[Rfam]
RNA sequence: AGGACUGUAUCGUGAGAACAGUACCUACUCUUUUUUAUGAUAAAAAAAUCUGCCUUGAUCAUACAAAUGACAGGGACGGAAGA
Numbered sequence: 001a002g003g004a005c006u007g008u009a010u011c012g013u014g015a016g017a018a019c020a021g022u023a024c025c026u027a028c029u030c031u032u033u034u035u036u037a038u039g040a041u042a043a044a045a046a047a048a049u050c051u052g053c054c055u056u057g058a059u060c061a062u063a064c065a066a067a068u069g070a071c072a073g074g075g076a077c078g079g080a081a082g083a
Base pairs, nucleotide, nucleotide: 001026002025003024004022005021006020007019008018010017011016050079051078052077053075054074055073056072057071059070060069061068

Source information
The family of this 83-nucleotide RNA sequence from Lysinibacillus alkalisoli is "pan motif". The match comes from Rfam's covariance-model search (64 bits). Rfam classes the family as a cis-regulatory element. The family's consensus secondary structure is taken from published work.